[Rfam]
A member of the RNA family "Plastid-atpF group II-D1 intron" from Scurrula parasitica, 53 nucleotides long.
Rfam 15.1 lists 1,372 matches to the family in 227 species.
For this family Rfam cites "Retrograde signaling in plants: A critical review focusing on the GUN pathway and beyond" (Richter et al., Plant Commun, 2023).
RNA sequence: GGAAUUUUGUUCGAUAUAGAACACUCAUGUCGAUAAAAUAACUUGAACCGCUU
Numbered sequence: 001g002g003a004a005u006u007u008u009g010u011u012c013g014a015u016a017u018a019g020a021a022c023a024c025u026c027a028u029g030u031c032g033a034u035a036a037a038a039u040a041a042c043u044u045g046a047a048c049c050g051c052u053u
Stems, first nucleotide, its partner, number of pairs: 011033007
Dot-bracket structure: ..........(((((((.........)))))))....................
The source organism's lineage runs through Eukaryota, Mesangiospermae, Pentapetalae, Santalales and Scurrula. The family's consensus secondary structure was predicted with LocARNA. About the family: Plastid atpF is a non-coding RNA (ncRNA) recognised in plastids. It has been reported in the intron group II-D1 region of ATP synthase (atpF) genes.